Source information
The family of this 113-nucleotide RNA from bacteria symbiont BFo2 of Frankliniella occidentalis is "Alpha operon ribosome binding site". Rfam's curators write: The bacterial alpha operon ribosome binding site is surrounded by this complex pseudoknotted structure. Translation of the mRNA produces 4 ribosomal protein products, one of which (S4) acts as a translational repressor by binding to the nested pseudoknot region. The mechanism of repression is thought to involve a conformational switch in the pseudoknot region and ribosome entrapment. Pairs were carried over by alignment from the consensus structure, which is taken from published work. Taxonomically the source falls in Enterobacterales (Bacteria, Pseudomonadati, Pseudomonadota, Gammaproteobacteria). Gene Ontology term of the family: ribosome binding.
RNA sequence: UAAGUGUAUUCUUCAUUUGAGUAUCCUGAAAACGGGCUUUUCAGCAUGAGAAUACAGUUAAUUAGUAAUAGGAGUGCAUAGUGGCCCGUAUAGCAGGCAUUAACAUUCCUGAU
Numbered sequence: 001u002a003a004g005u006g007u008a009u010u011c012u013u014c015a016u017u018u019g020a021g022u023a024u025c026c027u028g029a030a031a032a033c034g035g036g037c038u039u040u041u042c043a044g045c046a047u048g049a050g051a052a053u054a055c056a057g058u059u060a061a062u063u064a065g066u067a068a069u070a071g072g073a074g075u076g077c078a079u080a081g082u083g084g085c086c087c088g089u090a091u092a093g094c095a096g097g098c099a100u101u102a103a104c105a106u107u108c109c110u111g112a113u
Stems, first nucleotide, its partner, number of pairs: 005056009025097003033088004041112003